RNA sequence: CCGCUCUGGAAAACGCUCCCCUCGGGGAUCGUGCCGAAGGUGAAAGUCCCGCGUCAGACGACGUCUGCGCGGGGUGAAACUCUCAGGCCAAUGACAGAGGGGGA
Numbered sequence: 001c002c003g004c005u006c007u008g009g010a011a012a013a014c015g016c017u018c019c020c021c022u023c024g025g026g027g028a029u030c031g032u033g034c035c036g037a038a039g040g041u042g043a044a045a046g047u048c049c050c051g052c053g054u055c056a057g058a059c060g061a062c063g064u065c066u067g068c069g070c071g072g073g074g075u076g077a078a079a080c081u082c083u084c085a086g087g088c089c090a091a092u093g094a095c096a097g098a099g100g101g102g103g104a
Stems, first nucleotide, its partner, number of pairs: 001102002004099005014031002017028001033088003036084002040082001042080001046075009

This 104-nucleotide RNA from Microbacterium sp. belongs to the Rfam family "Glycine riboswitch aptamer". The match comes from Rfam's covariance-model search (34 bits). Rfam's curators write: This family represents the bacterial glycine riboswitch. NCBI's taxonomy places the organism under Bacteria, Actinomycetota, Micrococcales, Microbacteriaceae, Microbacterium.